[Rfam]
RNA sequence: CUCUAGCCCGGAUUGGAAUGACAUCCUUUUUUCAUUGCCAUGGGUUUUAACCCUCGGCAAUGAAAAAAGAUAUAAUGGAAAGCCGGACACAGC
Numbered sequence: 001c002u003c004u005a006g007c008c009c010g011g012a013u014u015g016g017a018a019u020g021a022c023a024u025c026c027u028u029u030u031u032u033c034a035u036u037g038c039c040a041u042g043g044g045u046u047u048u049a050a051c052c053c054u055c056g057g058c059a060a061u062g063a064a065a066a067a068a069g070a071u072a073u074a075a076u077g078g079a080a081a082g083c084c085g086g087a088c089a090c091a092g093c
Stems, first nucleotide, its partner, number of pairs: 009085003013081002018076002023071003029066011
The record is a 93-nucleotide RNA, which matches "Flavo-1 RNA" in Rfam. By type it is a small RNA. Rfam 15.1 lists 7,497 matches to the family in 411 species.